Rfam assigns this 113-nucleotide RNA sequence from Saonia flava to the family "Bacteroidete tryptophan peptide leader RNA". The organism belongs to Saonia, within Bacteria. Gene Ontology terms of the family: S-adenosylmethionine metabolic process and regulation of gene expression.
[Rfam]
RNA sequence: UCCUUUCUAUAUUUGAUGCAAUGAAACUAAUUACAGUAAAUAUUUGGUGGUGGAACAACUUACGUCAAACGUCGUGAGAUAGUCCAUACUAUUAUAAUAUAUAGAGGCUUGUC
Numbered sequence: 001u002c003c004u005u006u007c008u009a010u011a012u013u014u015g016a017u018g019c020a021a022u023g024a025a026a027c028u029a030a031u032u033a034c035a036g037u038a039a040a041u042a043u044u045u046g047g048u049g050g051u052g053g054a055a056c057a058a059c060u061u062a063c064g065u066c067a068a069a070c071g072u073c074g075u076g077a078g079a080u081a082g083u084c085c086a087u088a089c090u091a092u093u094a095u096a097a098u099a100u101a102u103a104g105a106g107g108c109u110u111g112u113c
Stems, first nucleotide, its partner, number of pairs: 036100003040095003044091001047087001049085002057080001059078003062072003